[Rfam]
RNA sequence: CCUCUUGCGAAGGCGCGCGUGCAGGCCUAUGUUCAGCGGUGCAGGGGGUUCGUCCCUAGCUAUGGCGAUAAACGGUAAGUGGAAUAAGUGUUGUGGACCCGGGGGCAGUGCCCGGCGUCUCCACCAAUAAAAACCCCUCAAAAGGGGGUCUGUGGGGACGAAACAGGCUCGACGCGCACGGUAAAGACUUAUCUUUUGCCCGGUAUUGUACCACCGUCAUCGGGCUAAACUUACAAGUGCCAAUGAUAACUCUAAGGUGCUCGCUGUCGCUGCAUAAGCGAUAAGCGCGGUUCGGGAGGCACCGGGCAACAGAAGCCUCCCACU
Number, nucleotide and partner (000 for none) at each position: 001c000002c000003u000004c000005u000006u000007g000008c000009g000010a000011a000012g000013g000014c000015g000016c000017g000018c000019g000020u000021g000022c000023a000024g000025g000026c000027c000028u000029a000030u000031g000032u000033u000034c000035a000036g000037c000038g000039g000040u000041g060042c059043a000044g057045g056046g055047g054048g053049u000050u000051c000052g000053u048054c047055c046056c045057u044058a000059g042060c041061u000062a000063u000064g200065g199066c198067g197068a196069u000070a000071a000072a000073c000074g193075g192076u191077a190078a189079g188080u187081g000082g000083a000084a000085u000086a000087a000088g000089u178090g177091u176092u000093g175094u174095g173096g000097a000098c000099c115100c114101g113102g112103g111104g000105g000106c000107a000108g000109u000110g000111c103112c102113c101114g100115g099116c160117g159118u158119c157120u156121c155122c154123a000124c000125c000126a000127a000128u000129a000130a000131a000132a000133a000134c000135c000136c000137c000138u000139c000140a000141a000142a000143a000144g000145g000146g000147g000148g000149u000150c000151u000152g000153u000154g122155g121156g120157g119158a118159c117160g116161a000162a000163a000164c000165a000166g000167g000168c000169u000170c000171g000172a000173c095174g094175c093176g091177c090178a089179c000180g000181g000182u000183a000184a000185a000186g000187a080188c079189u078190u077191a076192u075193c074194u000195u000196u068197u067198g066199c065200c064201c216202g215203g214204u213205a000206u227207u000208g225209u000210a000211c223212c222213a204214c203215c202216g201217u000218c000219a000220u000221c000222g212223g211224g000225c208226u000227a206228a000229a000230c000231u000232u000233a000234c000235a000236a000237g000238u000239g000240c000241c000242a000243a000244u000245g000246a000247u000248a000249a000250c000251u000252c000253u000254a000255a000256g000257g000258u000259g000260c000261u000262c000263g000264c000265u000266g000267u000268c000269g000270c000271u000272g000273c000274a000275u000276a000277a000278g000279c000280g000281a000282u000283a000284a000285g000286c000287g000288c304289g303290g302291u301292u000293c000294g000295g320296g319297a318298g317299g316300c315301a291302c290303c289304g288305g000306g000307c000308a000309a000310c000311a000312g000313a000314a000315g300316c299317c298318u297319c296320c295321c000322a000323c000324u000
RNA: Alphaproteobacteria transfer-messenger RNA
Organism: Gluconobacter wancherniae